[Rfam]
RNA sequence: UAUGAGGCGGGGGAUGGCGUCCCCCUGGGUUAUCCCAAACCGCCCGAUAUAGUAUGAGGGCUGAUGACGCCUAUCUCUAA
Numbered sequence: 001u002a003u004g005a006g007g008c009g010g011g012g013g014a015u016g017g018c019g020u021c022c023c024c025c026u027g028g029g030u031u032a033u034c035c036c037a038a039a040c041c042g043c044c045c046g047a048u049a050u051a052g053u054a055u056g057a058g059g060g061c062u063g064a065u066g067a068c069g070c071c072u073a074u075c076u077c078u079a080a
Stems, first nucleotide, its partner, number of pairs: 010025004016071006042061004

A member of the RNA family "Fluoride riboswitch aptamer (crcB RNA motif)", 80 nucleotides long.